[Rfam]
Shown here is a 69-nucleotide sequence from Ziziphus jujuba, a member of the family "Plastid-clpP 5UTR RNA". The base pairs follow the family's consensus structure, which was predicted with LocARNA. Rfam 15.1 lists 2,105 matches to the family in 526 species. Rfam describes the family as follows. Plastid clpP is a non-coding RNA (ncRNA) recognised in plastids. It was found in the prime untranslated region (5UTR) of a protease complex subunit (clpP) in plastids, suggesting a posible cis-regulatory function. Rfam classes the family as a cis-regulatory element. The literature on the family includes a 2023 paper in Plant Commun by Richter et al., "Retrograde signaling in plants: A critical review focusing on the GUN pathway and beyond".

Nucleotides: 069
Base pairs, nucleotide, nucleotide: 003022004021006019008017009016010015044067045066051060052059053058
Number, partner (000 for none) and nucleotide at each position: 001000a002000a003022u004021u005000u006019u007000u008017u009016u010015u011000g012000u013000a014000g015010g016009a017008a018000c019006a020000a021004a022003a023000g024000a025000a026000a027000c028000u029000a030000g031000a032000u033000c034000u035000a036000u037000u038000c039000u040000a041000c042000a043000c044067c045066c046000a047000g048000u049000a050000a051060g052059u053058a054000c055000a056000u057000a058053u059052a060051c061000g062000c063000a064000a065000u066045g067044g068000u069000g
Description:
Taxonomically the source falls in Ziziphus jujuba (Eukaryota, Streptophytina, Embryophyta, Ziziphus).